The family of this 306-nucleotide sequence from Tetracentron sinense is "Plant signal recognition particle RNA". The organism belongs to Tetracentron, within Eukaryota. The literature on the family includes a 2002 paper in Curr Opin Struct Biol by Wild et al., "Towards the structure of the mammalian signal recognition particle". Rfam classes the family as a non-coding RNA gene. The family's consensus secondary structure is taken from published work. The match comes from Rfam's covariance-model search (228 bits).
RNA sequence: GCCGAGCUAAGUAGCGUGAGCUUGUAACCCUAGUGGGGGCAUUAAAGUGGUCGAACUUGGGUCUGACUCAGACAGGCAGGGCCUGUUGGGGAAUUUAGCUGGCUCGCCCAUUCCAAGUCGAGAGAUGAGCCAUGUUGUCUGAGCGAAGGCUUGGGCAUCGUGGCUCUUAGUGUGGAGGGUUAAGCGUCAGGCUGGUUUCACAGAGCAGCGAAAACCUCCCGCUCUUGACAGUGGAAGGAUAACGAUUCGGUACUCCUCAGAUCCACUAAAGCCCGAAGAGACGAUCUCUUUCGGACGACCACUUUU
Numbered sequence: 001g002c003c004g005a006g007c008u009a010a011g012u013a014g015c016g017u018g019a020g021c022u023u024g025u026a027a028c029c030c031u032a033g034u035g036g037g038g039g040c041a042u043u044a045a046a047g048u049g050g051u052c053g054a055a056c057u058u059g060g061g062u063c064u065g066a067c068u069c070a071g072a073c074a075g076g077c078a079g080g081g082c083c084u085g086u087u088g089g090g091g092a093a094u095u096u097a098g099c100u101g102g103c104u105c106g107c108c109c110a111u112u113c114c115a116a117g118u119c120g121a122g123a124g125a126u127g128a129g130c131c132a133u134g135u136u137g138u139c140u141g142a143g144c145g146a147a148g149g150c151u152u153g154g155g156c157a158u159c160g161u162g163g164c165u166c167u168u169a170g171u172g173u174g175g176a177g178g179g180u181u182a183a184g185c186g187u188c189a190g191g192c193u194g195g196u197u198u199c200a201c202a203g204a205g206c207a208g209c210g211a212a213a214a215c216c217u218c219c220c221g222c223u224c225u226u227g228a229c230a231g232u233g234g235a236a237g238g239a240u241a242a243c244g245a246u247u248c249g250g251u252a253c254u255c256c257u258c259a260g261a262u263c264c265a266c267u268a269a270a271g272c273c274c275g276a277a278g279a280g281a282c283g284a285u286c287u288c289u290u291u292c293g294g295a296c297g298a299c300c301a302c303u304u305u306u
Stems, first nucleotide, its partner, number of pairs: 001040003004023005010017001028037003044305010056293001059289002061286001064283002068279002075273003079264003083260003088256004099250004104245003108238002111236005117229008127166008136157009167172001174219005185210003192203003